Record summary:
This 123-nucleotide RNA from Thermomonas sp. HDW16 belongs to the Rfam family "Xanthomonadaceae sRNA Xoo5". A reference for the family is Liang et al. (2011), "Identification and functional characterization of small non-coding RNAs in Xanthomonas oryzae pathovar oryzae", BMC Genomics.
[Rfam]
RNA sequence: UGAUGCAUGCCCACCUCGCCACGCGCCACGCUGACUCCGCCCGGAUGGCCUCGGGCAUGACGUCGCGUGCGCGCCGACCGGAAACCUCAUCUUUCGCUGGGUAGCCGGAGCGCAACACUGUUG
Dot-bracket structure: ..............................(.(..(.(((((((.((((.....(((((......)))))..)))).))((...(((...........)))...)))).)))..)..).)...